[Rfam]
RNA sequence: UAGUUUUAAUCAAAUGCUAAAUUCUUUUUUGCUACAACGUAUCCCCCUUUGCGGAGGGGCAUAACAAUCGAAGUGCGUUAACAUGCGGGUAUCGUUGAUUGUUUACGAGCCCACCGGGAGGCACCCGGCGCUGUAGCGACUAUAAUCUCUUUGUGGCGUGUAGGUUAAAAUCAUCAGCUGAUUCUAUUCCUGUAUGU
Number, nucleotide and partner (000 for none) at each position: 001u000002a000003g000004u000005u000006u000007u000008a000009a000010u000011c000012a000013a000014a146015u145016g000017c000018u000019a000020a000021a000022u000023u000024c000025u000026u000027u000028u000029u000030u000031g137032c136033u000034a134035c133036a132037a000038c130039g129040u000041a000042u000043c000044c059045c058046c057047c056048u055049u000050u000051g000052c000053g000054g000055a048056g047057g046058g045059g044060c000061a000062u000063a000064a000065c000066a000067a000068u000069c000070g000071a000072a000073g000074u000075g000076c000077g086078u085079u000080a000081a000082c000083a000084u000085g078086c077087g112088g111089g110090u109091a000092u000093c107094g106095u105096u000097g000098a000099u000100u000101g000102u000103u000104u000105a095106c094107g093108a000109g090110c089111c088112c087113a000114c128115c127116g126117g125118g124119a000120g000121g000122c000123a000124c118125c117126c116127g115128g114129c039130g038131c000132u036133g035134u034135a000136g032137c031138g000139a000140c000141u000142a000143u000144a000145a015146u014147c000148u000149c000150u000151u000152u000153g000154u000155g000156g197157c196158g195159u194160g000161u000162a000163g000164g000165u000166u186167a185168a000169a183170a182171u181172c180173a179174u000175c000176a000177g000178c000179u173180g172181a171182u170183u169184c000185u167186a166187u000188u000189c000190c000191u000192g000193u000194a159195u158196g157197u156
Gammaproteobacterial sRNA STnc100: a 197-nucleotide sequence from Pantoea vagans. The match comes from Rfam's covariance-model search (53 bits). The base pairs follow the family's consensus structure, which was predicted with CMfinder.